[Rfam]
RNA sequence: AGAAGGGCUUCCGGGGCGGGAUCGUUUCGGGGGCCUUUUUCUUUUGC
Numbered sequence: 001a002g003a004a005g006g007g008c009u010u011c012c013g014g015g016g017c018g019g020g021a022u023c024g025u026u027u028c029g030g031g032g033g034c035c036u037u038u039u040u041c042u043u044u045u046g047c
Base pairs, nucleotide, nucleotide: 005036006035007034008033009032010031011030012029015026016025017024018023
RNA: ctRNA